Small nucleolar RNA U19: a 152-nucleotide RNA from Brassica oleracea.

RNA sequence: AAUUGGCUUAGUUAGGAGGCCUAAAUCAAUCUGAUGAUCUUUCAAUAUGUCGAUACUUCUCUGUAUUGGUUUGAUCUUAAUGACUUGAGGUCUUUUGAGGAGGAGCUCUGCCUUUUUUUUUUGCUGCUUCUCCCAAGCAGCCUCAGACAUUA
Numbered sequence: 001a002a003u004u005g006g007c008u009u010a011g012u013u014a015g016g017a018g019g020c021c022u023a024a025a026u027c028a029a030u031c032u033g034a035u036g037a038u039c040u041u042u043c044a045a046u047a048u049g050u051c052g053a054u055a056c057u058u059c060u061c062u063g064u065a066u067u068g069g070u071u072u073g074a075u076c077u078u079a080a081u082g083a084c085u086u087g088a089g090g091u092c093u094u095u096u097g098a099g100g101a102g103g104a105g106c107u108c109u110g111c112c113u114u115u116u117u118u119u120u121u122u123g124c125u126g127c128u129u130c131u132c133c134c135a136a137g138c139a140g141c142c143u144c145a146g147a148c149a150u151u152a
Stems, first nucleotide, its partner, number of pairs: 005020001007018003036076004042069008085146007094137004099133008

It is annotated as an H/ACA-box small nucleolar RNA.